[Rfam]
The record is a 298-nucleotide RNA sequence from Burhinus bistriatus, which matches "Metazoan signal recognition particle RNA" in Rfam. The organism belongs to Burhinus, within Eukaryota. Rfam 15.1 lists 383,523 matches to the family in 1,221 species. It is annotated as a non-coding RNA gene. About the family: The signal recognition particle (SRP) is a universally conserved ribonucleoprotein.
RNA sequence: GAAGGCAUUUGAAGGUAAUGCUCUCUCCCUUUUUCUGGGCUGGUGUACUCUCGUGAGCCUGCUGGAUUGCUUGAGCCCAGGAGUUCUGGGCUGCAGUGUGCUAGGUGUCUGCACUAAGGCCGGCAUCAAUAUGGUGAGCCCUGGGGAGCCAGGGGACACCAGGCUGACUAGGGACGGGUGAACUGGCCCAGUUUGGAGACGGAGCAGGUCAAAGCUCUUGUGCUGGUCAGUGCCGGGAUCGCACCUGUGAAUAGCCACUGCAGCGUAGCCUGGGCAACACAGAGAGACGUGGGCUCCU
Numbered sequence: 001g002a003a004g005g006c007a008u009u010u011g012a013a014g015g016u017a018a019u020g021c022u023c024u025c026u027c028c029c030u031u032u033u034u035c036u037g038g039g040c041u042g043g044u045g046u047a048c049u050c051u052c053g054u055g056a057g058c059c060u061g062c063u064g065g066a067u068u069g070c071u072u073g074a075g076c077c078c079a080g081g082a083g084u085u086c087u088g089g090g091c092u093g094c095a096g097u098g099u100g101c102u103a104g105g106u107g108u109c110u111g112c113a114c115u116a117a118g119g120c121c122g123g124c125a126u127c128a129a130u131a132u133g134g135u136g137a138g139c140c141c142u143g144g145g146g147a148g149c150c151a152g153g154g155g156a157c158a159c160c161a162g163g164c165u166g167a168c169u170a171g172g173g174a175c176g177g178g179u180g181a182a183c184u185g186g187c188c189c190a191g192u193u194u195g196g197a198g199a200c201g202g203a204g205c206a207g208g209u210c211a212a213a214g215c216u217c218u219u220g221u222g223c224u225g226g227u228c229a230g231u232g233c234c235g236g237g238a239u240c241g242c243a244c245c246u247g248u249g250a251a252u253a254g255c256c257a258c259u260g261c262a263g264c265g266u267a268g269c270c271u272g273g274g275c276a277a278c279a280c281a282g283a284g285a286g287a288c289g290u291g292g293g294c295u296c297c298u
Stems, first nucleotide, its partner, number of pairs: 004022006055296008067285002070282002075275007086268003090264009100255004104245005109237002112235001115232002118228009127166002130163001132161005139154006168172001174219001176217004184211005193202003